[Rfam]
RNA sequence: GCGCGGGGACGGCCUCGCCAUCGACCGACUCACUGGGGACGGCCCCU
Dot-bracket structure: ..((((((....))))))................((((....)))).